[Rfam]
RNA sequence: GUGAAGUGAUGAUGAAGUUUAUCCAUUCUCUGAGUGUGCUGCUCUGCCCUUCCUGCAGUUCUCAGCUCCUGUUCUAGGAACUGAGUUAUGUAACCUCCAGAUGCCCUCCAGACUUGCAGUGUUCUACUGUAGAUGGUAGGUGUGUGUGGUGGUCUUACUAGUAGGAAGGGAUAGUGUCAGCAGGGAUGGAACCUUAUCUGUUUAGGGUCCCAUCUUGCCAAGACGAAUGACUGGUGUCUGAUCAC
Numbered sequence: 001g002u003g004a005a006g007u008g009a010u011g012a013u014g015a016a017g018u019u020u021a022u023c024c025a026u027u028c029u030c031u032g033a034g035u036g037u038g039c040u041g042c043u044c045u046g047c048c049c050u051u052c053c054u055g056c057a058g059u060u061c062u063c064a065g066c067u068c069c070u071g072u073u074c075u076a077g078g079a080a081c082u083g084a085g086u087u088a089u090g091u092a093a094c095c096u097c098c099a100g101a102u103g104c105c106c107u108c109c110a111g112a113c114u115u116g117c118a119g120u121g122u123u124c125u126a127c128u129g130u131a132g133a134u135g136g137u138a139g140g141u142g143u144g145u146g147u148g149g150u151g152g153u154c155u156u157a158c159u160a161g162u163a164g165g166a167a168g169g170g171a172u173a174g175u176g177u178c179a180g181c182a183g184g185g186a187u188g189g190a191a192c193c194u195u196a197u198c199u200g201u202u203u204a205g206g207g208u209c210c211c212a213u214c215u216u217g218c219c220a221a222g223a224c225g226a227a228u229g230a231c232u233g234g235u236g237u238c239u240g241a242u243c244a245c
Stems, first nucleotide, its partner, number of pairs: 010244004017237002020234001024229005030222002034218002038181004042176001044174003048170002050167007058087001061085005067079004090158003093153003103143002105140001109136001112134001114132008183216007192207005
Dot-bracket structure: .........((((...((.(...(((((.((..((..(((((.(((.(((((((((.(..(((((.((((.....)))).))))).)..((((((.......(((...(..(.((((((((...)))))))).).)...).)).......)))..)))..))))))).)).))).).)))).(((((((..(((((......)))))..)))))))))..))..)))))....).))...)))).